7SK RNA: a 330-nucleotide sequence from Sousa chinensis. A reference for the family is Wassarman and Steitz (1991), "Structural analyses of the 7SK ribonucleoprotein (RNP), the most abundant human small RNP of unknown function", Mol Cell Biol.
RNA sequence: GGAUGUGAGGCGAUCUGGCUGCCACCUCUGUCACCCCUUUCAUCGCCAGCGUUCAUUCAGCUGAUCUGGCUGGCUAGGCGGGCGUCCCCUUCCUCCCUCACCGCUCCAUCUGUGUCCCUCCCGAAGCUGCACGCUCUGUCGAAGAGGACGACCUUCCCCGAUAGAGGAGGACCGUUCUUUGGUCGAGGGUAUACGAGUAGCUGCGCUCCCCUGCUAGAACCUCCAAACAAGCUCUCAAGGUCCAUUUAUAGGAGAACGUAGGGUAGUCAAGCUUCCGAGACUCCAGACACAUCCAAAUGAGGCGCUGCACGUGGCAGUCUGCCUUUAAAA
Number, nucleotide and partner (000 for none) at each position: 001g107002g106003a105004u000005g101006u100007g099008a098009g097010g096011c000012g092013a091014u000015c000016u000017g089018g088019c000020u000021g000022c000023c000024a085025c084026c000027u082028c081029u080030g079031u078032c077033a000034c073035c072036c069037c068038u000039u000040u000041c000042a065043u064044c063045g061046c060047c000048a000049g000050c000051g000052u000053u000054c000055a000056u000057u000058c000059a000060g046061c045062u000063g044064a043065u042066c000067u000068g037069g036070c000071u000072g035073g034074c000075u000076a000077g032078g031079c030080g029081g028082g027083c000084g025085u024086c000087c000088c018089c017090u000091u013092c012093c000094u000095c000096c010097c009098u008099c007100a006101c005102c000103g000104c000105u003106c002107c001108a000109u000110c000111u000112g000113u000114g000115u170116c169117c167118c166119u165120c164121c138122c000123g136124a135125a000126g134127c133128u000129g000130c000131a000132c000133g127134c126135u124136c123137u000138g121139u161140c160141g159142a000143a000144g000145a000146g157147g156148a155149c000150g000151a000152c000153c000154u000155u148156c147157c146158c000159c141160g140161a139162u000163a000164g120165a119166g118167g117168a000169g116170g115171a000172c000173c000174g000175u000176u000177c000178u000179u000180u000181g000182g000183u000184c000185g000186a000187g000188g000189g000190u000191a000192u000193a000194c000195g000196a000197g000198u000199a000200g272201c271202u270203g000204c000205g000206c266207u265208c000209c263210c262211c261212u260213g259214c258215u000216a000217g000218a000219a000220c000221c254222u253223c252224c251225a000226a000227a249228c000229a247230a246231g245232c000233u000234c000235u000236c000237a000238a000239g000240g000241u000242c000243c000244a000245u231246u230247u229248a000249u227250a000251g224252g223253a222254g221255a000256a000257c000258g214259u213260a212261g211262g210263g209264u000265a207266g206267u000268c000269a000270a202271g201272c200273u000274u000275c000276c000277g000278a000279g000280a000281c000282u000283c000284c000285a000286g000287a000288c000289a000290c000291a000292u000293c000294c000295a000296a000297a000298u000299g325300a324301g323302g322303c321304g318305c317306u316307g315308c314309a000310c000311g000312u000313g000314g308315c307316a306317g305318u304319c000320u000321g303322c302323c301324u300325u299326u000327a000328a000329a000330a000
It scores 326 bits against the family's covariance model. NCBI's taxonomy places the organism under Eukaryota, Craniata, Teleostomi, Artiodactyla, Sousa. The family's RNA type in Rfam is non-coding RNA gene. Rfam describes the family as follows. 7SK was discovered as an abundant small nuclear RNA in the mid-70s but a possible function has only recently been suggested. Two independent studies have found that 7SK RNA binds the CDK9/cyclin T complex (known as elongation factor P-TEFb). P-TEFb activates transcription by phosphorylating the C-terminal domain of RNA polymerase II. This process is negatively regulated by the 7SK RNP. The secondary structure of 7SK RNA shown here was proposed by Wasserman and Steitz on the basis of chemical modification and enzymatic cleavage experiments. This family contains a number of annotated pseudogenes and 7SK derived repeats.